Source information
Rfam assigns this 141-nucleotide sequence from Populus trichocarpa to the family "Small nucleolar RNA snoR136". The family's RNA type in Rfam is H/ACA-box small nucleolar RNA. Its family is annotated with RNA processing and nucleolus in the Gene Ontology. The match comes from Rfam's covariance-model search (74 bits). The source organism's lineage runs through Eukaryota, Magnoliopsida, eudicotyledons, rosids and Populus.

[Rfam]
RNA sequence: GAGGCUUCACAUCAGUACUUUAUAAAAGCUAAAACUAAGUUGAUUAGCUUAUGCUUAUGUUAGUGAAGCCUAAAUAAACUGUUCCCCUCGCUAUCCAGAGCGGCGUUCUGUGUUGCAUUUGGACGUCGGGGAACUACAUUC
Numbered sequence: 001g002a003g004g005c006u007u008c009a010c011a012u013c014a015g016u017a018c019u020u021u022a023u024a025a026a027a028g029c030u031a032a033a034a035c036u037a038a039g040u041u042g043a044u045u046a047g048c049u050u051a052u053g054c055u056u057a058u059g060u061u062a063g064u065g066a067a068g069c070c071u072a073a074a075u076a077a078a079c080u081g082u083u084c085c086c087c088u089c090g091c092u093a094u095c096c097a098g099a100g101c102g103g104c105g106u107u108c109u110g111u112g113u114u115g116c117a118u119u120u121g122g123a124c125g126u127c128g129g130g131g132a133a134c135u136a137c138a139u140u141c
Stems, first nucleotide, its partner, number of pairs: 003070003008065002016062001018059001026056004032050001034049001036047001081134007089125002094123005103113003